[Rfam]
RNA sequence: GCCGGGCACAGUGGCUUUUGUCUGGUCAUUUUGGGCUGAGGCUGGCGGACGGCUUGAGCCCGGGGGUUCUGGGCUGCAGCGAGCUGUGCCGAGCGGGCGUCCGCGCUAAGGCCGGCAUCGAUAUGGUGGUCCUGGGGGAGCCGGGGGCUACCAGGUCGCCUAAGGAGGGGUGAACCGGCCCAGGUCGGAGACGGAGCAGGUCAAAGCUCCCGUGCCGGUCAGUAGCGGGAUGGCGCCUGUGAAUGGUCCCUGUAGCACAGCCUGGGCAAGAGGGCGGGACCCAGCUUCUU
Numbered sequence: 001g002c003c004g005g006g007c008a009c010a011g012u013g014g015c016u017u018u019u020g021u022c023u024g025g026u027c028a029u030u031u032u033g034g035g036c037u038g039a040g041g042c043u044g045g046c047g048g049a050c051g052g053c054u055u056g057a058g059c060c061c062g063g064g065g066g067u068u069c070u071g072g073g074c075u076g077c078a079g080c081g082a083g084c085u086g087u088g089c090c091g092a093g094c095g096g097g098c099g100u101c102c103g104c105g106c107u108a109a110g111g112c113c114g115g116c117a118u119c120g121a122u123a124u125g126g127u128g129g130u131c132c133u134g135g136g137g138g139a140g141c142c143g144g145g146g147g148c149u150a151c152c153a154g155g156u157c158g159c160c161u162a163a164g165g166a167g168g169g170g171u172g173a174a175c176c177g178g179c180c181c182a183g184g185u186c187g188g189a190g191a192c193g194g195a196g197c198a199g200g201u202c203a204a205a206g207c208u209c210c211c212g213u214g215c216c217g218g219u220c221a222g223u224a225g226c227g228g229g230a231u232g233g234c235g236c237c238u239g240u241g242a243a244u245g246g247u248c249c250c251u252g253u254a255g256c257a258c259a260g261c262c263u264g265g266g267c268a269a270g271a272g273g274g275c276g277g278g279a280c281c282c283a284g285c286u287u288c289u290u
Base pairs, nucleotide, nucleotide: 001036002035003034004023005022006021007020008019010017011016038288039287040286041285042284043283044282045281050277052275053274054273055272058267059266060265061264062263063262064261069260070259071258073256074255075254076253077252078251079250081248083247084246085245086244087243089241093240094239095238096237097236098235099234100233101229102228104227105226106225107224108223110220111219112218113217114216115215116214117213118212119158120157121156122155124153125152126151127150128149129148130147131146132145133144135142136141159165160164167210168209169208170207171206177202178201179200180199185194186193187192
Description:
Rfam assigns this 290-nucleotide sequence from Tauraco erythrolophus to the family "Metazoan signal recognition particle RNA". For this family Rfam cites "Towards the structure of the mammalian signal recognition particle" (Wild et al., Curr Opin Struct Biol, 2002). The signal recognition particle (SRP) is a universally conserved ribonucleoprotein.